[Rfam]
RNA sequence: GGCGGACCACCGCCUAAUCGCGUUGUCGCGAGCCGGGGAACCGAGUACCUGGGGUGCAGCCACUGAGUGGCCGGGCAGACUUCCCGCCCGAACCCGUCAGCUAACCCGGUCGGCGGCUGAACGGGAAGAA
Numbered sequence: 001g002g003c004g005g006a007c008c009a010c011c012g013c014c015u016a017a018u019c020g021c022g023u024u025g026u027c028g029c030g031a032g033c034c035g036g037g038g039a040a041c042c043g044a045g046u047a048c049c050u051g052g053g054g055u056g057c058a059g060c061c062a063c064u065g066a067g068u069g070g071c072c073g074g075g076c077a078g079a080c081u082u083c084c085c086g087c088c089c090g091a092a093c094c095c096g097u098c099a100g101c102u103a104a105c106c107c108g109g110u111c112g113g114c115g116g117c118u119g120a121a122c123g124g125g126a127a128g129a130a
Stems, first nucleotide, its partner, number of pairs: 011115004018031003032110006042051002052095003060070004073089004
RNA: c-di-AMP riboswitch aptamer (ydaO/yuaA leader)
Organism: Actinoplanes derwentensis